About this RNA:
This 96-nucleotide RNA from Paraurantiacibacter namhicola belongs to the Rfam family "Glycine riboswitch aptamer".

[Rfam]
RNA sequence: GGGCGCGCCACGGGAGAGUGCGGGGCCUGCAAUGGCUUCGCCGCCGAAGGAGCAACCGCCCCGGAAUCUCUCAGGCCAAAGGACCGCGGCGCGAAU
Numbered sequence: 001g002g003g004c005g006c007g008c009c010a011c012g013g014g015a016g017a018g019u020g021c022g023g024g025g026c027c028u029g030c031a032a033u034g035g036c037u038u039c040g041c042c043g044c045c046g047a048a049g050g051a052g053c054a055a056c057c058g059c060c061c062c063g064g065a066a067u068c069u070c071u072c073a074g075g076c077c078a079a080a081g082g083a084c085c086g087c088g089g090c091g092c093g094a095a096u
Base pairs, nucleotide, nucleotide: 006091007090008089009088011086012085013084020041021040022039023038024037025036026035043076044075045074046072047071050070051069052068056064057063